This 115-nucleotide RNA from Parapedobacter composti belongs to the Rfam family "SAM riboswitch aptamer (S box leader)". The match comes from Rfam's covariance-model search (76 bits).
RNA sequence: GAUUUAUAAAGAAGUGGCGAGAGACUGGCUCAAUGACCCACUGGCAACCAUCUACAAGCCGUAGAAAAGGUGCCAAUUCCUGUCCCUGCCGAUGUCGGCCGGGAGCAUAUAAAUG
Numbered sequence: 001g002a003u004u005u006a007u008a009a010a011g012a013a014g015u016g017g018c019g020a021g022a023g024a025c026u027g028g029c030u031c032a033a034u035g036a037c038c039c040a041c042u043g044g045c046a047a048c049c050a051u052c053u054a055c056a057a058g059c060c061g062u063a064g065a066a067a068a069g070g071u072g073c074c075a076a077u078u079c080c081u082g083u084c085c086c087u088g089c090c091g092a093u094g095u096c097g098g099c100c101g102g103g104a105g106c107a108u109a110u111a112a113a114u115g
Base pairs, nucleotide, nucleotide: 002114003113004112005111006110007109008108013042014041015040016039017038021031022030023029025082027080028079043074044073045072046071048070049069051065052064053063078107083104084103085102086101088099089098090097